[Rfam]
RNA sequence: GGGUCAAGAGUGCUGCCUUUAAGUGGUGCGUCGAGUUUUCUCGCUUGGCCCU
Numbered sequence: 001g002g003g004u005c006a007a008g009a010g011u012g013c014u015g016c017c018u019u020u021a022a023g024u025g026g027u028g029c030g031u032c033g034a035g036u037u038u039u040c041u042c043g044c045u046u047g048g049c050c051c052u
Stems, first nucleotide, its partner, number of pairs: 001051003005047004010029007032043004
The record is a 52-nucleotide RNA sequence from Treponema denticola, which matches "DUF3800-VI RNA" in Rfam. The sequence is in the family's curated seed alignment.